Shown here is a 235-nucleotide RNA from Vallicoccus soli, a member of the family "Actinobacteria sRNA Ms_IGR-5". It scores 67 bits against the family's covariance model. Taxonomically the source falls in Vallicoccus (Bacteria, Bacillati, Actinomycetes, Vallicoccaceae). The family's RNA type in Rfam is small RNA.
RNA sequence: ACACGGGAAAGGAGGUGGUCCGGAGCUUUGAGUACUUCGGGAACGCGUGAGGUGGCUGUCCGCUAGCCGCACGACCGCAGAGAAGGCCCCUCCGGGGCCGACGCCGACUGGUCCGCGCGCACCGCGCGCGUAGCGGCCGGCGAGGACGAGGCAGUCACCCGACCCGCGGGCGCUGGGGAGUCGUUCCUCCCAGCAGCCUCCCUCGCACGAGGGGGCAGCCCGCGGGUCGUCUGCG
Numbered sequence: 001a002c003a004c005g006g007g008a009a010a011g012g013a014g015g016u017g018g019u020c021c022g023g024a025g026c027u028u029u030g031a032g033u034a035c036u037u038c039g040g041g042a043a044c045g046c047g048u049g050a051g052g053u054g055g056c057u058g059u060c061c062g063c064u065a066g067c068c069g070c071a072c073g074a075c076c077g078c079a080g081a082g083a084a085g086g087c088c089c090c091u092c093c094g095g096g097g098c099c100g101a102c103g104c105c106g107a108c109u110g111g112u113c114c115g116c117g118c119g120c121a122c123c124g125c126g127c128g129c130g131u132a133g134c135g136g137c138c139g140g141c142g143a144g145g146a147c148g149a150g151g152c153a154g155u156c157a158c159c160c161g162a163c164c165c166g167c168g169g170g171c172g173c174u175g176g177g178g179a180g181u182c183g184u185u186c187c188u189c190c191c192a193g194c195a196g197c198c199u200c201c202c203u204c205g206c207a208c209g210a211g212g213g214g215g216c217a218g219c220c221c222g223c224g225g226g227u228c229g230u231c232u233g234c235g
Stems, first nucleotide, its partner, number of pairs: 014060006061142004066137002069134002073129001160229012173193006